[Rfam]
RNA sequence: GGGAGCGACUUGGCUUCGACAGGAGCAGAGCGCACAUGGUGGCACGUCGCUUUGAGCAAAGCGUAAAAAGCUCAAAUUAAAAUUAAACGCAAAUAACGUUAAAUUCGCUCCUGCUUACGCUAAAGCUGCGUAAGUUCAGUUGAGCCUUGCUUGUUUUGAUACUAUCUAAAAACGUGAGCGAGUAACCCUAGAUAGAGUAGGUUUGUGGUCUGACGAACUAUAAGCUGAAAUUUUGUCUUAGUCUAGCUUUUGGUUUUGGAAAGUGAGCUUUGCUAGAUGAAUUUUUCACUUUUGCUAAGCGUGUAGAGGCUGUGUGUGGUUUGUUUUUGGACAGGGGUUCGAUCCCCCUCGCUUCCACCA
Numbered sequence: 001g002g003g004a005g006c007g008a009c010u011u012g013g014c015u016u017c018g019a020c021a022g023g024a025g026c027a028g029a030g031c032g033c034a035c036a037u038g039g040u041g042g043c044a045c046g047u048c049g050c051u052u053u054g055a056g057c058a059a060a061g062c063g064u065a066a067a068a069a070g071c072u073c074a075a076a077u078u079a080a081a082a083u084u085a086a087a088c089g090c091a092a093a094u095a096a097c098g099u100u101a102a103a104u105u106c107g108c109u110c111c112u113g114c115u116u117a118c119g120c121u122a123a124a125g126c127u128g129c130g131u132a133a134g135u136u137c138a139g140u141u142g143a144g145c146c147u148u149g150c151u152u153g154u155u156u157u158g159a160u161a162c163u164a165u166c167u168a169a170a171a172a173c174g175u176g177a178g179c180g181a182g183u184a185a186c187c188c189u190a191g192a193u194a195g196a197g198u199a200g201g202u203u204u205g206u207g208g209u210c211u212g213a214c215g216a217a218c219u220a221u222a223a224g225c226u227g228a229a230a231u232u233u234u235g236u237c238u239u240a241g242u243c244u245a246g247c248u249u250u251u252g253g254u255u256u257u258g259g260a261a262a263g264u265g266a267g268c269u270u271u272g273c274u275a276g277a278u279g280a281a282u283u284u285u286u287c288a289c290u291u292u293u294g295c296u297a298a299g300c301g302u303g304u305a306g307a308g309g310c311u312g313u314g315u316g317u318g319g320u321u322u323g324u325u326u327u328u329g330g331a332c333a334g335g336g337g338u339u340c341g342a343u344c345c346c347c348c349u350c351g352c353u354u355c356c357a358c359c360a
Stems, first nucleotide, its partner, number of pairs: 001356007020329010031318010043303005048063005053074005126139003146182006155172002163195001167191001201218005207238002210235001212233001241278007253268003258295001260293002263289003333349005
The family of this 360-nucleotide RNA sequence is "transfer-messenger RNA". Rfam describes the family as follows. Bacterial tmRNA, also known as 10Sa RNA or SsrA, is named for its dual tRNA and mRNA-like properties. It scores 144 bits against the family's covariance model.